[Rfam]
RNA sequence: AGUCGGGCAAGAUGUCGGCCUGCAAUCUCCAGGCUGCUUAAAUCGGUAUCUGCUUUCCUUUGACCACGGAUGUACUGGCACUGUUGAAAGCAUGAUCCCAACGAAGGUCAGGCCAAUAGCCUGGCCUUUUUUAUU
Numbered sequence: 001a002g003u004c005g006g007g008c009a010a011g012a013u014g015u016c017g018g019c020c021u022g023c024a025a026u027c028u029c030c031a032g033g034c035u036g037c038u039u040a041a042a043u044c045g046g047u048a049u050c051u052g053c054u055u056u057c058c059u060u061u062g063a064c065c066a067c068g069g070a071u072g073u074a075c076u077g078g079c080a081c082u083g084u085u086g087a088a089a090g091c092a093u094g095a096u097c098c099c100a101a102c103g104a105a106g107g108u109c110a111g112g113c114c115a116a117u118a119g120c121c122u123g124g125c126c127u128u129u130u131u132u133a134u135u
Stems, first nucleotide, its partner, number of pairs: 003046004009039001016036005049094001051092005058083001061080002064078003095134002100132002103129011

About this RNA:
Shown here is a 135-nucleotide RNA from Paenirhizobium daejeonense, a member of the family "Alphaproteobacterial sRNA ar35". The literature on the family includes a 2012 paper in RNA Biol by del Val et al., "A survey of sRNA families in alpha-proteobacteria". NCBI's taxonomy places the organism under Bacteria, Pseudomonadati, Alphaproteobacteria, Hyphomicrobiales, Paenirhizobium.